[Rfam]
RNA sequence: GUAACUUCCGCUAGUAGGGUGUCAUCCCAGUGCCCAGACACUGGGAUCUAGGAAUUUUAUUAAGUUGGUAAGCAUAAAAGUAGCCAUUUUAUGUAAAAAUAUAACAUUUUGAUGAUUAUGAAAAAGCUGGAUCCCAGUGUCAAGCACUGGGAUGACAAAAAAAGGUACUAGCCUGA
Dot-bracket structure: ..........(((((....((((((((((((((...(((((((((((((((...........................................................................)))))))))))))))..)))))))))))))).........))))).....
The record is a 176-nucleotide RNA sequence from Trichonephila clavata, which matches "Wolbachia sRNA 46" in Rfam.
The match comes from Rfam's covariance-model search (67 bits).
On this family, see Mayoral et al., Proc Natl Acad Sci U S A 2014: "Wolbachia small noncoding RNAs and their role in cross-kingdom communications".